[Rfam]
RNA: Streptococcus sRNA SpF66
RNA sequence: GUUACCGCCCCUAUACCCGGUAAGGAAAGGGGGUGUCUGACAUGGAAAAUCUUAUUUCUUUUAUUGUCGCUGUUGCGGCUGGUGUAGUUUGCCACUACAUCAUCAAAUGGUUGGACGGCGGCAAAUAGUCGGUAACCAGCCUGCAGAUGCCUAACUGCUUAAAAAGGAAGAAAGCCCCUGAGUCUCGACCACUCAGGGGCUUUCGCUUUUGUG
Numbered sequence: 001g002u003u004a005c006c007g008c009c010c011c012u013a014u015a016c017c018c019g020g021u022a023a024g025g026a027a028a029g030g031g032g033g034u035g036u037c038u039g040a041c042a043u044g045g046a047a048a049a050u051c052u053u054a055u056u057u058c059u060u061u062u063a064u065u066g067u068c069g070c071u072g073u074u075g076c077g078g079c080u081g082g083u084g085u086a087g088u089u090u091g092c093c094a095c096u097a098c099a100u101c102a103u104c105a106a107a108u109g110g111u112u113g114g115a116c117g118g119c120g121g122c123a124a125a126u127a128g129u130c131g132g133u134a135a136c137c138a139g140c141c142u143g144c145a146g147a148u149g150c151c152u153a154a155c156u157g158c159u160u161a162a163a164a165a166g167g168a169a170g171a172a173a174g175c176c177c178c179u180g181a182g183u184c185u186c187g188a189c190c191a192c193u194c195a196g197g198g199g200c201u202u203u204c205g206c207u208u209u210u211g212u213g
Stems, first nucleotide, its partner, number of pairs: 005030002010025003016020001032159004044062004048057002080102002083099006109141006117133001122131001161210003165207002167204003173201011